[Rfam]
RNA sequence: GCUCCCAAUGAUGUUCAUUUUAUCCAUGCUAAUGCUGAGAUACGUCAAUGAUUAGAAUCAUCAUUUACUUCUCUGAGGGAGCU
Numbered sequence: 001g002c003u004c005c006c007a008a009u010g011a012u013g014u015u016c017a018u019u020u021u022a023u024c025c026a027u028g029c030u031a032a033u034g035c036u037g038a039g040a041u042a043c044g045u046c047a048a049u050g051a052u053u054a055g056a057a058u059c060a061u062c063a064u065u066u067a068c069u070u071c072u073c074u075g076a077g078g079g080a081g082c083u
Stems, first nucleotide, its partner, number of pairs: 001082005